[Rfam]
RNA sequence: UGGAAGUGAUGAAAUAGAGAUAAUUGGAUGUCUCUCUGAAUGGAGUGUGUGUGAUAAAUGGAUUUUAAAUCAAGUCAGACAGGGGGUGGGGUGUGUGGGGAAUGUGUGCGUGCACGGAUGUAUAGAAAAGGCUUUAAAUGGGGGCACUGAUAGUGCAGUGCUGAUUCCGGAGUGCAUCUGAGGCAUGUUGUUAAGUUCUGGGGCCACUUUACAACAUUGCCAAUGAUUAAAGCCCAAAACAAGCCCACCAGGACAAGCCCAGGCAUCCUAAAUCUCUAACAGGUUCAUUAAUGAAAGUGAUCCUGUGAUCUGAUCUGA
Numbered sequence: 001u002g003g004a005a006g007u008g009a010u011g012a013a014a015u016a017g018a019g020a021u022a023a024u025u026g027g028a029u030g031u032c033u034c035u036c037u038g039a040a041u042g043g044a045g046u047g048u049g050u051g052u053g054a055u056a057a058a059u060g061g062a063u064u065u066u067a068a069a070u071c072a073a074g075u076c077a078g079a080c081a082g083g084g085g086g087u088g089g090g091g092u093g094u095g096u097g098g099g100g101a102a103u104g105u106g107u108g109c110g111u112g113c114a115c116g117g118a119u120g121u122a123u124a125g126a127a128a129a130g131g132c133u134u135u136a137a138a139u140g141g142g143g144g145c146a147c148u149g150a151u152a153g154u155g156c157a158g159u160g161c162u163g164a165u166u167c168c169g170g171a172g173u174g175c176a177u178c179u180g181a182g183g184c185a186u187g188u189u190g191u192u193a194a195g196u197u198c199u200g201g202g203g204c205c206a207c208u209u210u211a212c213a214a215c216a217u218u219g220c221c222a223a224u225g226a227u228u229a230a231a232g233c234c235c236a237a238a239a240c241a242a243g244c245c246c247a248c249c250a251g252g253a254c255a256a257g258c259c260c261a262g263g264c265a266u267c268c269u270a271a272a273u274c275u276c277u278a279a280c281a282g283g284u285u286c287a288u289u290a291a292u293g294a295a296a297g298u299g300a301u302c303c304u305g306u307g308a309u310c311u312g313a314u315c316u317g318a
Stems, first nucleotide, its partner, number of pairs: 001317004186216006193209004198203001

Small Cajal body-specific RNA 7: a 318-nucleotide RNA from Pelecanoides urinatrix. A reference for the family is Darzacq et al. (2002), "Cajal body-specific small nuclear RNAs: a novel class of 2'-O-methylation and pseudouridylation guide RNAs", EMBO J. The pairing is the family consensus, mapped onto this sequence. The family's RNA type in Rfam is small Cajal body RNA.